[Rfam]
RNA sequence: GUGGGAUACGGGGACAUGUGUCCGAUCACCAUGGGAGGCAAGAUGGUGGGCACCCUCUGCGCCAUCGCUGGCGUCCUGACCAUCGCUCUGCCCGUCCCGGUCAUCGUCUCCAAC
Numbered sequence: 001g002u003g004g005g006a007u008a009c010g011g012g013g014a015c016a017u018g019u020g021u022c023c024g025a026u027c028a029c030c031a032u033g034g035g036a037g038g039c040a041a042g043a044u045g046g047u048g049g050g051c052a053c054c055c056u057c058u059g060c061g062c063c064a065u066c067g068c069u070g071g072c073g074u075c076c077u078g079a080c081c082a083u084c085g086c087u088c089u090g091c092c093c094g095u096c097c098c099g100g101u102c103a104u105c106g107u108c109u110c111c112a113a114c
Stems, first nucleotide, its partner, number of pairs: 001114002004111002008107004013102003018097001020095002037077002040074001049063003
The family of this 114-nucleotide sequence from Betta splendens is "Potassium channel RNA editing signal". NCBI's taxonomy places the organism under Eukaryota, Vertebrata, Euacanthomorphacea, Anabantoidei, Betta. Rfam describes the family as follows. This family represents a group of sequences related to the human potassium channel Kv1.1 hairpin element which directs the efficient modification of an adenosine to inosine by an adenosine deaminase acting on RNA (ADAR). The family's RNA type in Rfam is cis-regulatory element. It scores 109 bits against the family's covariance model. The literature on the family includes a 2004 paper in Nat Struct Mol Biol by Bhalla et al., "Control of human potassium channel inactivation by editing of a small mRNA hairpin".